[Rfam]
RNA sequence: CAGGGUAAAGGUGAUGGUGUUCCACCUGUUAUAAACCGCCGCCUACGGCUGAUGACGCCUGCUGAACC
Numbered sequence: 001c002a003g004g005g006u007a008a009a010g011g012u013g014a015u016g017g018u019g020u021u022c023c024a025c026c027u028g029u030u031a032u033a034a035a036c037c038g039c040c041g042c043c044u045a046c047g048g049c050u051g052a053u054g055a056c057g058c059c060u061g062c063u064g065a066a067c068c
Stems, first nucleotide, its partner, number of pairs: 010026004016059006038049004
Fluoride riboswitch aptamer (crcB RNA motif): a 68-nucleotide RNA from Taibaiella chishuiensis. Lineage of the source: Bacteria > Pseudomonadati > Chitinophagia > Chitinophagaceae > Taibaiella. Rfam links the family to the GO terms positive regulation of gene expression and response to fluoride.